[Rfam]
RNA sequence: CCGAGGGCUUCACCCCUGGCUAUUAUAUUUCGCCCCUUCAGGGCU
Dot-bracket structure: (((.(((.....))).)))............((((.....)))).
Numbered sequence: 001c002c003g004a005g006g007g008c009u010u011c012a013c014c015c016c017u018g019g020c021u022a023u024u025a026u027a028u029u030u031c032g033c034c035c036c037u038u039c040a041g042g043g044c045u
Stems, first nucleotide, its partner, number of pairs: 001019003005015003032044004
Background: Acido-Lenti-1 RNA: a 45-nucleotide sequence from Flavipsychrobacter stenotrophus. The match comes from Rfam's covariance-model search (40 bits).